Record summary: A member of the RNA family "Plastid-psbN 5UTR RNA" from Nicotiana attenuata, 61 nucleotides long. The family's RNA type in Rfam is cis-regulatory element. NCBI's taxonomy places the organism under Eukaryota, Embryophyta, Spermatophyta, asterids, Nicotiana. The family's consensus secondary structure was predicted with LocARNA. A reference for the family is Zhelyazkova et al. (2012), "The primary transcriptome of barley chloroplasts: numerous noncoding RNAs and the dominating role of the plastid-encoded RNA polymerase", Plant Cell.

RNA sequence: UGCCUCACCCAUCAAAAGAGUAGUUCCCUACUCAGGAGCUACUUUACCAUAUUUUGAAUUC
Numbered sequence: 001u002g003c004c005u006c007a008c009c010c011a012u013c014a015a016a017a018g019a020g021u022a023g024u025u026c027c028c029u030a031c032u033c034a035g036g037a038g039c040u041a042c043u044u045u046a047c048c049a050u051a052u053u054u055u056g057a058a059u060u061c
Base pairs, nucleotide, nucleotide: 017045018044019043020042021041022040023039024038025037026036027035
Dot-bracket structure: ................(((((((((((.......)))))))))))................